[Rfam]
RNA: Small nucleolar RNA SNORD25
Organism: Hevea brasiliensis
RNA sequence: CGGAGCAGUGAUGAGUCCUACGUACCUGUAAUGAUUUGCCGAAAUGAUCGCAAAUCUUUUAGAACAUCAACAUCUAAGGGCUGAGUUCCA
Numbered sequence: 001c002g003g004a005g006c007a008g009u010g011a012u013g014a015g016u017c018c019u020a021c022g023u024a025c026c027u028g029u030a031a032u033g034a035u036u037u038g039c040c041g042a043a044a045u046g047a048u049c050g051c052a053a054a055u056c057u058u059u060u061a062g063a064a065c066a067u068c069a070a071c072a073u074c075u076a077a078g079g080g081c082u083g084a085g086u087u088c089c090a
Stems, first nucleotide, its partner, number of pairs: 002089005